[Rfam]
RNA sequence: AUAGCAAGUCAGUCUAUCGCCGCUUAAUUGAGGAGGAAAGUCCGGGCAAUACAGGGCGCCAUGCUUCCUAACGGGAAGAUACUCGUGAGGGUAUAGUAAUGCAACAGAAAACAACCGCCUAACUACGGUUCGGUAAGGGUGAAAAGGUGGGGUAAGAGCCCACCGGUACUUGUGGUAACACAGGUAGCCGUGCAACUAAUGGAUUGCAAGACCAAAUAUAUCACAAUUUCGGAAGAUACAGGGUGGUCCGCCUUGGUGCGAAAGCAAUUGUGAGGGGUAGGUUGCUUUAGCUUAUUAGCAAUAAUAAGCAUAGACAAAUGAUAGACCGCUCAUGUAUGAGUGACAGAACCCGGCUUAUCGACUUGCUAUUUUU
Numbered sequence: 001a002u003a004g005c006a007a008g009u010c011a012g013u014c015u016a017u018c019g020c021c022g023c024u025u026a027a028u029u030g031a032g033g034a035g036g037a038a039a040g041u042c043c044g045g046g047c048a049a050u051a052c053a054g055g056g057c058g059c060c061a062u063g064c065u066u067c068c069u070a071a072c073g074g075g076a077a078g079a080u081a082c083u084c085g086u087g088a089g090g091g092u093a094u095a096g097u098a099a100u101g102c103a104a105c106a107g108a109a110a111a112c113a114a115c116c117g118c119c120u121a122a123c124u125a126c127g128g129u130u131c132g133g134u135a136a137g138g139g140u141g142a143a144a145a146g147g148u149g150g151g152g153u154a155a156g157a158g159c160c161c162a163c164c165g166g167u168a169c170u171u172g173u174g175g176u177a178a179c180a181c182a183g184g185u186a187g188c189c190g191u192g193c194a195a196c197u198a199a200u201g202g203a204u205u206g207c208a209a210g211a212c213c214a215a216a217u218a219u220a221u222c223a224c225a226a227u228u229u230c231g232g233a234a235g236a237u238a239c240a241g242g243g244u245g246g247u248c249c250g251c252c253u254u255g256g257u258g259c260g261a262a263a264g265c266a267a268u269u270g271u272g273a274g275g276g277g278u279a280g281g282u283u284g285c286u287u288u289a290g291c292u293u294a295u296u297a298g299c300a301a302u303a304a305u306a307a308g309c310a311u312a313g314a315c316a317a318a319u320g321a322u323a324g325a326c327c328g329c330u331c332a333u334g335u336a337u338g339a340g341u342g343a344c345a346g347a348a349c350c351c352g353g354c355u356u357a358u359c360g361a362c363u364u365g366c367u368a369u370u371u372u373u
Stems, first nucleotide, its partner, number of pairs: 001369010011358001012326007020033002023030001038356003042353005047206004059202004064078005079094001081092004095197002101193003115138002117134003121130003146164006166188001167186008210283004221273005253267003257263001290309008

Shown here is a 373-nucleotide RNA from Saccharicrinis carchari, a member of the family "Bacterial RNase P class A". The source organism's lineage runs through Bacteria, Pseudomonadati, Marinilabiliales, Marinilabiliaceae and Saccharicrinis. Rfam links the family to the GO terms dimeric ribonuclease P complex, ribonuclease P activity and tRNA processing.